The record is a 158-nucleotide RNA from Microcebus murinus, which matches "Small Cajal body specific RNA 1" in Rfam. scaRNAs are a specific class of small nuclear RNAs which localise to the Cajal bodies and guide the modification of RNA polymerase II transcribed spliceosomal RNAs U1, U2, U4, U5 and U12. ACA35 belong to the H/ACA box class of guide RNAs as it has the predicted hairpin-hinge-hairpin-tail structure, conserved H/ACA-box motifs and is found associated with GAR1. It is predicted to guide pseudouridylation of the U2 spliceosomal snRNA at residue U89. A reference for the family is Darzacq et al. (2002), "Cajal body-specific small nuclear RNAs: a novel class of 2'-O-methylation and pseudouridylation guide RNAs", EMBO J. Pairs were carried over by alignment from the consensus structure, which was predicted with RNAalifold. Gene Ontology terms of the family: Cajal body, nucleolus and RNA processing. Rfam 15.1 lists 715 matches to the family in 617 species. By type it is a small Cajal body RNA.

RNA sequence: UAGUACUUGCUACUAACCAAGCUGUAUAUUUCCUAGCCUGUGUCAAAGACUUGUGAUGUGUUGUGAUAGCUGGGUUUAAAGAGUGCAAUAUUAAAACGAAAGCCAUGAAUCUUUUAAGAUUAGUGUGUAAAGACACACUCUGACUCUGAGUUACAGCU
Numbered sequence: 001u002a003g004u005a006c007u008u009g010c011u012a013c014u015a016a017c018c019a020a021g022c023u024g025u026a027u028a029u030u031u032c033c034u035a036g037c038c039u040g041u042g043u044c045a046a047a048g049a050c051u052u053g054u055g056a057u058g059u060g061u062u063g064u065g066a067u068a069g070c071u072g073g074g075u076u077u078a079a080a081g082a083g084u085g086c087a088a089u090a091u092u093a094a095a096a097c098g099a100a101a102g103c104c105a106u107g108a109a110u111c112u113u114u115u116a117a118g119a120u121u122a123g124u125g126u127g128u129a130a131a132g133a134c135a136c137a138c139u140c141u142g143a144c145u146c147u148g149a150g151u152u153a154c155a156g157c158u
Base pairs, nucleotide, nucleotide: 003086004085005084006083007082008081015076016075017074018073020071021070022069023068024067025066027060028059029058031056032055033053035051036050038048039047102152104150123138124137125136126135127134128133139149140148142146